[Rfam]
RNA sequence: CAAUUCCCACCCGGCCAAGGGUAGCCGCCAUCCGGUAGCGAGUCUUGCGCAGCGUCGGGUAACCGCCGCUGUGAAGCGUAGGCAGCAAGUGAGUAGGCCGUGUCAUUGAGCCCCGAAAUUUUCACCAUGCGAUCGCCGACGCCCUGCGGAUAGCGGAAGGCAACACGAACUCACCGAACAGGCUUGGUGAGAGAGGGUCGCCGGGGUCAUUAGAGCA
Numbered sequence: 001c002a003a004u005u006c007c008c009a010c011c012c013g014g015c016c017a018a019g020g021g022u023a024g025c026c027g028c029c030a031u032c033c034g035g036u037a038g039c040g041a042g043u044c045u046u047g048c049g050c051a052g053c054g055u056c057g058g059g060u061a062a063c064c065g066c067c068g069c070u071g072u073g074a075a076g077c078g079u080a081g082g083c084a085g086c087a088a089g090u091g092a093g094u095a096g097g098c099c100g101u102g103u104c105a106u107u108g109a110g111c112c113c114c115g116a117a118a119u120u121u122u123c124a125c126c127a128u129g130c131g132a133u134c135g136c137c138g139a140c141g142c143c144c145u146g147c148g149g150a151u152a153g154c155g156g157a158a159g160g161c162a163a164c165a166c167g168a169a170c171u172c173a174c175c176g177a178a179c180a181g182g183c184u185u186g187g188u189g190a191g192a193g194a195g196g197g198u199c200g201c202c203g204g205g206g207u208c209a210u211u212a213g214a215g216c217a
Stems, first nucleotide, its partner, number of pairs: 012034003019029002023184003036088001038086002042083004046078002048073007056065003108208001110207006129201006135161003140155003166195001170191006